Nucleotides: 441
Stems, first nucleotide, its partner, number of pairs: 001437007009429001011428001012426001013392007021041008046424003050421005055270004062326004067266005072086005088099004102261001107259002110254002123201001125197019209227006229250001230248001231246006274349004284340005317331005356375008
Number, partner (000 for none) and nucleotide at each position: 001437c002436a003435a004434a005433g006432a007431g008000u009429u010000u011428c012426a013392g014391g015390u016389g017388a018387u019386c020000g021041c022040g023039g024038g025037c026036g027035g028034a029000c030000u031000u032000g033000a034028u035027c036026c037025g038024c039023c040022u041021g042000a043000g044000g045000a046424a047423a048422g049000u050421c051420c052419g053418a054417a055270c056269u057268c058267c059000a060000u061000a062326g063325a064324g065323c066000a067266c068265g069264c070263u071262g072086c073085c074084g075083g076082a077000u078000a079000a080000c081000g082076u083075c084074c085073g086072g087000g088099c089098g090097c091096g092000g093000u094000a095000a096091c097090g098089c099088g100000c101000g102261g103000a104000g105000c106000a107259g108258g109000a110254c111253c112000a113000c114000a115000g116000a117000a118000a119000c120000a121000g122000a123201c124000g125197g126196c127195c128194u129193u130192g131191u132190c133189g134188u135187a136186g137185g138184u139183c140182g141181g142180c143179a144000a145000c146000c147000c148000u149000a150000u151000g152000c153000c154000g155000a156000c157000c158000c159000u160000g161000c162000g163000g164000c165000a166000a167000c168000c169000g170000g171000c172000a173000u174000g175000u176000g177000g178000c179143u180142g181141c182140c183139g184138g185137c186136c187135u188134a189133c190132g191131a192130u193129g194128a195127g196126g197125u198000c199000a200000a201123g202000g203000u204000g205000a206000a207000a208000a209227g210226g211225u212224g213223a214222g215000g216000u217000a218000a219000g220000a221000g222214c223213u224212c225211a226210c227209c228000g229250g230248c231246g232245g233244c234243a235242c236241g237000g238000u239000a240000a241236c242235g243234u244233g245232u246231c247000c248230g249000g250229c251000c252000a253111g254110g255000c256000a257000a258108c259107c260000c261102c262071c263070a264069g265068c266067g267058g268057g269056a270055g271000c272000a273000a274349g275348g276347c277346c278000a279000a280000g281000c282000a283000u284340g285339c286338g287337a288336g289000c290000g291000g292000c293000g294000a295000u296000c297000c298000c299000c300000u301000c302000c303000g304000g305000a306000g307000g308000g309000g310000a311000c312000g313000c314000a315000c316000a317331g318330c319329g320328g321327u322000g323065g324064c325063u326062c327321g328320c329319c330318g331317c332000c333000a334000g335000u336288c337287u338286c339285g340284c341000g342000g343000g344000u345000a346277g347276g348275c349274c350000g351000c352000a353000c354000g355000a356375g357374u358373c359372g360371a361370u362369u363368g364000g365000u366000a367000a368363c369362g370361a371360u372359c373358g374357g375356c376000c377000u378000a379000g380000a381000g382000a383000a384000a385000u386019g387018a388017u389016c390015g391014c392013c393000g394000c395000u396000c397000g398000g399000u400000u401000u402000c403000g404000a405000u406000c407000g408000g409000g410000a411000a412000c413000a414000a415000a416000a417054u418053u419052c420051g421050g422048c423047u424046u425000a426012u427000c428011g429009a430000u431007c432006u433005c434004u435003u436002u437001g438000g439000c440000a441000a

The family of this 441-nucleotide RNA from a Thermoflexales bacterium is "Bacterial RNase P class A". It is annotated as a ribozyme.